ZMP/ZTP riboswitch aptamer (pfl RNA motif): an 84-nucleotide sequence from Desulforamulus reducens. The organism belongs to Desulforamulus reducens, within Bacteria.

RNA sequence: CUACAGUUGCAUGACUGGCGGAUUUUUGUGGAGCACCACAAAGGAUUGUAACUGUUUUUUAAGCCGACCGCCUGGGCAAUACAC
Numbered sequence: 001c002u003a004c005a006g007u008u009g010c011a012u013g014a015c016u017g018g019c020g021g022a023u024u025u026u027u028g029u030g031g032a033g034c035a036c037c038a039c040a041a042a043g044g045a046u047u048g049u050a051a052c053u054g055u056u057u058u059u060u061a062a063g064c065c066g067a068c069c070g071c072c073u074g075g076g077c078a079a080u081a082c083a084c
Base pairs, nucleotide, nucleotide: 003055004054005053006052007051008050009049010048011047015043016042017072018071019070020069021068028039029038030037031036063077064076065075